[Rfam]
RNA sequence: ACAGCCCGCAAGGCCGACGGCAUCCCGCCGCCGCUGGUGCAAGCCCAGCCGCCGGACAACCCCGGCGGGCGCUCAUGGGCCGAAA
Number, nucleotide and partner (000 for none) at each position: 001a000002c000003a000004g080005c079006c078007c077008g000009c000010a000011a000012g000013g070014c069015c068016g000017a000018c030019g029020g028021c000022a000023u000024c000025c000026c000027g000028c020029c019030g018031c000032c000033g049034c048035u047036g046037g000038u000039g000040c000041a000042a000043g000044c000045c000046c036047a035048g034049c033050c067051g066052c065053c064054g063055g062056a000057c000058a000059a000060c000061c000062c055063c054064g053065g052066c051067g050068g015069g014070c013071g000072c000073u000074c000075a000076u000077g007078g006079g005080c004081c000082g000083a000084a000085a000